[Rfam]
RNA sequence: UGCAGCUCUGUCAAAUUCAGUACUCACCUUCUCCAUGGUGGGUACUGGCCCAGAGAGCUGCCACAGAAACAUCUGUAGUUCAUGGGCCCCAUGUCUCUCUUUCUGGACCCUGGGGAUAAAUAUUUGCUACAGACAUUG
Numbered sequence: 001u002g003c004a005g006c007u008c009u010g011u012c013a014a015a016u017u018c019a020g021u022a023c024u025c026a027c028c029u030u031c032u033c034c035a036u037g038g039u040g041g042g043u044a045c046u047g048g049c050c051c052a053g054a055g056a057g058c059u060g061c062c063a064c065a066g067a068a069a070c071a072u073c074u075g076u077a078g079u080u081c082a083u084g085g086g087c088c089c090c091a092u093g094u095c096u097c098u099c100u101u102u103c104u105g106g107a108c109c110c111u112g113g114g115g116a117u118a119a120a121u122a123u124u125u126g127c128u129a130c131a132g133a134c135a136u137u138g
Stems, first nucleotide, its partner, number of pairs: 002061004018047011075130005087115005
The record is a 138-nucleotide sequence from Chelydra serpentina, which matches "Small nucleolar RNA SNORA5" in Rfam. ACA5 is a member of the H/ACA class of snoRNA that guide the sites of modification of uridines to pseudouridines. Rfam 15.1 lists 2,226 matches to the family in 629 species. Gene Ontology terms of the family: nucleolus and RNA processing. Rfam classes the family as an H/ACA-box small nucleolar RNA.